This 67-nucleotide RNA sequence from Cnephaeus nilssonii belongs to the Rfam family "mir-9256 microRNA precursor family". The family's consensus secondary structure was predicted with RNAalifold. Rfam 15.1 lists 31,772 matches to the family in 5 species.
RNA sequence: CAAAACACUGAGCGGCCAGAUUAUUAUGUCCUCUGAACGCAUAAUAAUCUGGCCACUCAGUGUUUGU
Numbered sequence: 001c002a003a004a005a006c007a008c009u010g011a012g013c014g015g016c017c018a019g020a021u022u023a024u025u026a027u028g029u030c031c032u033c034u035g036a037a038c039g040c041a042u043a044a045u046a047a048u049c050u051g052g053c054c055a056c057u058c059a060g061u062g063u064u065u066g067u
Stems, first nucleotide, its partner, number of pairs: 004064009014054004019049010